Rfam assigns this 88-nucleotide RNA from Streptomyces sp. LaPpAH-165 to the family "nrdJ RNA".
RNA sequence: CUUGCUCCGGGCGACGUAUGACGAAUGCGGCGGCCGAAGCAUCAGACACACACUGUGCCCGGGGAAGUUCUCGGCACUUCAGGGCGUU
Numbered sequence: 001c002u003u004g005c006u007c008c009g010g011g012c013g014a015c016g017u018a019u020g021a022c023g024a025a026u027g028c029g030g031c032g033g034c035c036g037a038a039g040c041a042u043c044a045g046a047c048a049c050a051c052a053c054u055g056u057g058c059c060c061g062g063g064g065a066a067g068u069u070c071u072c073g074g075c076a077c078u079u080c081a082g083g084g085c086g087u088u
Stems, first nucleotide, its partner, number of pairs: 003041004008036003013031001015029005055077005061071002
The source organism's lineage runs through Bacteria, Bacillati, Kitasatosporales, Streptomycetaceae and Streptomyces.